[Rfam]
Nucleotides: 150
Base pairs, nucleotide, nucleotide: 004056005055006054007053008052013049014048020043021042022041023040024039026037027036028035076090077089078088105150106149107148108147109146112142113141114140116138117137123132124131
Number, partner (000 for none) and nucleotide at each position: 001000c002000u003000c004056u005055a006054c007053c008052c009000c010000c011000g012000c013049g014048u015000c016000a017000g018000a019000u020043g021042c022041c023040g024039c025000a026037g027036c028035c029000c030000u031000a032000c033000g034000g035028g036027g037026c038000g039024g040023c041022g042021g043020u044000c045000a046000g047000u048014a049013c050000a051000a052008g053007g054006g055005u056004a057000u058000a059000a060000a061000g062000g063000g064000g065000g066000c067000u068000g069000u070000u071000u072000c073000c074000u075000u076090g077089c078088c079000a080000g081000a082000g083000g084000c085000c086000c087000c088078g089077g090076c091000a092000a093000a094000a095000a096000a097000u098000a099000a100000a101000g102000c103000c104000g105150c106149c107148g108147c109146a110000g111000a112142u113141g114140c115000c116138g117137c118000c119000a120000g121000u122000a123132g124131c125000c126000g127000c128000a129000g130000g131124g132123u133000g134000a135000a136000c137117g138116c139000c140114g141113c142112a143000a144000c145000a146109u147108g148107c149106g150105g
RT-14 RNA: a 150-nucleotide RNA from bacterium 1XD42-8. Rfam classes the family as a small RNA.